The record is a 95-nucleotide RNA sequence, which matches "ivy-DE RNA" in Rfam.
RNA sequence: UGACCAAGGGGCCGGGGCGCUAUGAUCAAUGGAGUGGUUGCAGCGUGCCAGGUGUACAGGGAGUACUCCCAUUCGUGGGCCGGGUCAGGAAGCCG
Numbered sequence: 001u002g003a004c005c006a007a008g009g010g011g012c013c014g015g016g017g018c019g020c021u022a023u024g025a026u027c028a029a030u031g032g033a034g035u036g037g038u039u040g041c042a043g044c045g046u047g048c049c050a051g052g053u054g055u056a057c058a059g060g061g062a063g064u065a066c067u068c069c070c071a072u073u074c075g076u077g078g079g080c081c082g083g084g085u086c087a088g089g090a091a092g093c094c095g
Stems, first nucleotide, its partner, number of pairs: 001087005010081004014049002017046002020043002023040005051069002054066004